RNA sequence: AGCCAUGUGAUAAGUACAAAGCGAACUAUUCUUUCGCCUUUUACUAAAGAAUACCGUGUACUUUUCACUAACAGUGGCAUACGAUAAUUUUUGAAUGAGCUCUCAUGUUUGAGAGCUCU
Numbered sequence: 001a002g003c004c005a006u007g008u009g010a011u012a013a014g015u016a017c018a019a020a021g022c023g024a025a026c027u028a029u030u031c032u033u034u035c036g037c038c039u040u041u042u043a044c045u046a047a048a049g050a051a052u053a054c055c056g057u058g059u060a061c062u063u064u065u066c067a068c069u070a071a072c073a074g075u076g077g078c079a080u081a082c083g084a085u086a087a088u089u090u091u092u093g094a095a096u097g098a099g100c101u102c103u104c105a106u107g108u109u110u111g112a113g114a115g116c117u118c119u
Stems, first nucleotide, its partner, number of pairs: 003077004008067003012063007027053008095119001097118006
RNA: U5 spliceosomal RNA